[Rfam]
RNA sequence: CCCACCCAUGGCAACAAAUUCCAAUCGCGCGUUUUUCCAGCACGAUUGAGCCGACGCCAUGGGAAAGCAUUGUCUUGCGACCAUUAGAUCCCACUUUCAAUACGAUUACUGAUUGUGGUUUGCACGUGGUCCACAA
Numbered sequence: 001c002c003c004a005c006c007c008a009u010g011g012c013a014a015c016a017a018a019u020u021c022c023a024a025u026c027g028c029g030c031g032u033u034u035u036u037c038c039a040g041c042a043c044g045a046u047u048g049a050g051c052c053g054a055c056g057c058c059a060u061g062g063g064a065a066a067g068c069a070u071u072g073u074c075u076u077g078c079g080a081c082c083a084u085u086a087g088a089u090c091c092c093a094c095u096u097u098c099a100a101u102a103c104g105a106u107u108a109c110u111g112a113u114u115g116u117g118g119u120u121u122g123c124a125c126g127u128g129g130u131c132c133a134c135a136a
Base pairs, nucleotide, nucleotide: 005063006062007061008060009059010058011057012056022048023047024046025045026044027043029041030040050055079132080130081129082128083127084126087123088121091118092117093116094115097112098111099110101108

The family of this 136-nucleotide RNA is "Nematode snoRNA ceN125".
The family's RNA type in Rfam is H/ACA-box small nucleolar RNA.
For this family Rfam cites "Systematic identification of non-coding RNA 2,2,7-trimethylguanosine cap structures in Caenorhabditis elegans" (Jia et al., BMC Mol Biol, 2007).
The match comes from Rfam's covariance-model search (131 bits).
The family's consensus secondary structure was predicted with RNAalifold.